[Rfam]
RNA: mir-33 microRNA precursor family
Organism: Chelonia mydas
RNA sequence: CUGUCGUGCAUUGUAGUUGCAUUGCACGUUCUGGCCAUACUUGUGCAAUGUUUCUGCAGCGCAGCACAG
Numbered sequence: 001c002u003g004u005c006g007u008g009c010a011u012u013g014u015a016g017u018u019g020c021a022u023u024g025c026a027c028g029u030u031c032u033g034g035c036c037a038u039a040c041u042u043g044u045g046c047a048a049u050g051u052u053u054c055u056g057c058a059g060c061g062c063a064g065c066a067c068a069g
Stems, first nucleotide, its partner, number of pairs: 001069004006065001007063003011059006019051001021049007